Eukaryotic large subunit ribosomal RNA: a 449-nucleotide part of an RNA from Coemansia brasiliensis. A search with the family's covariance model found it, with a score of 3000 bits.
[Rfam]
RNA sequence: GGCAGUAGCAAAUAUUCAAGUGAGAGCCUUGAAGACUGAAGUGGAGAAGGGUUCCCGGGCAACUGUAGUAGGCCCGGGGUCAGCCGUGCCUAAGGAGUUGGCAAACGCUGGAAACUGCGGCUGUUGUGCAGCCGCGUGCUCCGAAAGGGAAACAGGUUAAAAUUCCUGUGCUUGGACAGUGGUGUUGGUGGCAACACAAGGGAAUCUGGAGACGCCGGGACGGUCCCCCAGGAGAGUUUUCUCUUCUCUUUAACGCCUGCGCAGGCCCUGGAAUCAGCUUAACUGGAGAAGGGGCGUGGGGCGGCGGUAGAGCAGCUCUGCACUUGGAGCUGUUGGGCGCGGCGGUUACGGCCCGUGAAAAUCCAGAGGACCGCCUCGCAAGAGGGCAUUCACGCCAAGACGUACCCAUAACCGCAUCAGGUCUCCUAGGUGAACAGCCUCUAGUUGAA
Number, nucleotide and partner (000 for none) at each position: 001g000002g000003c000004a000005g000006u000007a000008g000009c000010a000011a000012a000013u000014a000015u033016u032017c031018a030019a029020g028021u000022g000023a000024g000025a000026g000027c000028c020029u019030u018031g017032a016033a015034g446035a445036c444037u443038g000039a000040a000041g000042u000043g426044g425045a424046g423047a000048a000049g406050g405051g000052u000053u000054c078055c077056c076057g075058g074059g073060c000061a000062a000063c071064u070065g000066u000067a000068g000069u000070a064071g063072g000073c059074c058075c057076g056077g055078g054079g000080u000081c000082a000083g000084c000085c402086g401087u400088g000089c148090c147091u000092a000093a000094g142095g141096a000097g000098u110099u000100g109101g108102c107103a000104a000105a000106c000107g102108c101109u100110g098111g000112a000113a000114a000115c000116u000117g000118c000119g133120g132121c131122u000123g000124u000125u000126g000127u000128g000129c000130a000131g121132c120133c119134g000135c000136g000137u000138g000139c000140u000141c095142c094143g000144a000145a000146a000147g090148g089149g000150a000151a000152a169153c168154a167155g166156g165157u000158u000159a000160a000161a000162a000163u000164u000165c156166c155167u154168g153169u152170g000171c000172u398173u397174g396175g395176a000177c394178a000179g393180u392181g391182g390183u388184g387185u000186u000187g000188g197189u196190g195191g000192c000193a000194a000195c190196a189197c188198a000199a000200g000201g000202g000203a000204a000205u367206c366207u365208g364209g363210a362211g000212a000213c000214g352215c351216c350217g349218g000219g347220a346221c345222g000223g343224u342225c341226c000227c337228c336229c335230a250231g249232g248233a247234g246235a245236g000237u000238u000239u000240u000241c000242u000243c000244u000245u235246c234247u233248c232249u231250u230251u000252a000253a000254c306255g305256c304257c303258u000259g000260c000261g000262c000263a000264g000265g295266c294267c293268c292269u291270g000271g000272a000273a000274u286275c285276a284277g283278c000279u000280u000281a000282a000283c277284u276285g275286g274287a000288g000289a000290a000291g269292g268293g267294g266295c265296g000297u000298g000299g000300g000301g000302c000303g257304g256305c255306g254307g000308u000309a000310g000311a000312g000313c332314a331315g330316c329317u328318c327319u326320g000321c000322a000323c000324u000325u000326g319327g318328a317329g316330c315331u314332g313333u000334u000335g229336g228337g227338c000339g000340c000341g225342g224343c223344g000345g221346u220347u219348a000349c217350g216351g215352c214353c000354c000355g000356u000357g000358a000359a000360a000361a000362u210363c209364c208365a207366g206367a205368g000369g000370a000371c000372c000373g000374c000375c000376u000377c000378g000379c000380a000381a000382g000383a000384g000385g000386g000387c184388a183389u000390u182391c181392a180393c179394g177395c175396c174397a173398a172399g000400a087401c086402g085403u000404a000405c050406c049407c000408a000409u000410a000411a000412c421413c420414g000415c000416a000417u000418c000419a000420g413421g412422u000423c046424u045425c044426c043427u000428a440429g439430g438431u437432g000433a000434a000435c000436a000437g431438c430439c429440u428441c000442u000443a037444g036445u035446u034447g000448a000449a000